RNA: SAM riboswitch aptamer (S box leader)
RNA sequence: AUGUUAUCAAGAAAGGUGGAGGGAUUAGACCCGAUGAAACCUUAGCAACCCUUUAAACUUAUUAAAGAAGGUGCUAAAUUCUACUUAAACCCCAAUUCAUUUAUUGGUGUUUGGAUAGAUAACCA
Numbered sequence: 001a002u003g004u005u006a007u008c009a010a011g012a013a014a015g016g017u018g019g020a021g022g023g024a025u026u027a028g029a030c031c032c033g034a035u036g037a038a039a040c041c042u043u044a045g046c047a048a049c050c051c052u053u054u055a056a057a058c059u060u061a062u063u064a065a066a067g068a069a070g071g072u073g074c075u076a077a078a079u080u081c082u083a084c085u086u087a088a089a090c091c092c093c094a095a096u097u098c099a100u101u102u103a104u105u106g107g108u109g110u111u112u113g114g115a116u117a118g119a120u121a122a123c124c125a
Base pairs, nucleotide, nucleotide: 003123004122005121006120007119008118013043014042015041016040017039021032022031023030026083027082028081029080044075045074046073047072049071050070051067052066053065054064079117084114085113087111088110